[Rfam]
RNA sequence: AUAAUCCCAGCUCCGCCUGAUCACGUAGCCCCAGUGUGUUCUUGGUGUUUCCAGGGAGAGAGAAGAAGGCUCUUCUAAUGCAUGCCAGACUUGCCCACCAUGGCUCUCUGUUCCUAGGAGUGUGACAUCU
Numbered sequence: 001a002u003a004a005u006c007c008c009a010g011c012u013c014c015g016c017c018u019g020a021u022c023a024c025g026u027a028g029c030c031c032c033a034g035u036g037u038g039u040u041c042u043u044g045g046u047g048u049u050u051c052c053a054g055g056g057a058g059a060g061a062g063a064a065g066a067a068g069g070c071u072c073u074u075c076u077a078a079u080g081c082a083u084g085c086c087a088g089a090c091u092u093g094c095c096c097a098c099c100a101u102g103g104c105u106c107u108c109u110g111u112u113c114c115u116a117g118g119a120g121u122g123u124g125a126c127a128u129c130u
Stems, first nucleotide, its partner, number of pairs: 002064001005061002008058001011056003015052001019041002022038005072120005078115001080113001087109003093104003